Notes
Small nucleolar RNA snoR26: an 89-nucleotide sequence from Juglans regia. Rfam 15.1 lists 611 matches to the family in 220 species. Rfam classes the family as a C/D-box small nucleolar RNA. A search with the family's covariance model found it, with a score of 86 bits. Gene Ontology terms of the family: nucleolus and RNA processing. The source organism's lineage runs through Eukaryota, Streptophyta, eudicotyledons, Gunneridae and Juglans.
[Rfam]
RNA sequence: UGAGCAUCAAUGAUGAGUAUAAUCCAUUGUUAUCCUUGCACUUUGAUUACUAGUGAAGAAACUUAUGGGGAAAUUUCUCUGAGUUGCUC
Numbered sequence: 001u002g003a004g005c006a007u008c009a010a011u012g013a014u015g016a017g018u019a020u021a022a023u024c025c026a027u028u029g030u031u032a033u034c035c036u037u038g039c040a041c042u043u044u045g046a047u048u049a050c051u052a053g054u055g056a057a058g059a060a061a062c063u064u065a066u067g068g069g070g071a072a073a074u075u076u077c078u079c080u081g082a083g084u085u086g087c088u089c
Stems, first nucleotide, its partner, number of pairs: 002089005008083001